[Rfam]
Shown here is a 131-nucleotide RNA from Jaculus jaculus, a member of the family "Small nucleolar RNA SNORA33".
RNA sequence: UAUCCUGCCAACUAAUCUGCUCGUUUGAAUGUAUUUCUGUAGAAAUUUAGAAAAAGCUAGCAAUAAUGAUACCAUGUUAUGAGCCUCAAGGACAACUGAGGUCAUUAAAGUCCCUGAAAAUGGCUCUCAUC
Numbered sequence: 001u002a003u004c005c006u007g008c009c010a011a012c013u014a015a016u017c018u019g020c021u022c023g024u025u026u027g028a029a030u031g032u033a034u035u036u037c038u039g040u041a042g043a044a045a046u047u048u049a050g051a052a053a054a055a056g057c058u059a060g061c062a063a064u065a066a067u068g069a070u071a072c073c074a075u076g077u078u079a080u081g082a083g084c085c086u087c088a089a090g091g092a093c094a095a096c097u098g099a100g101g102u103c104a105u106u107a108a109a110g111u112c113c114c115u116g117a118a119a120a121u122g123g124c125u126c127u128c129a130u131c
Stems, first nucleotide, its partner, number of pairs: 004060001007057001016043005072123003083111002086108001088106002091103003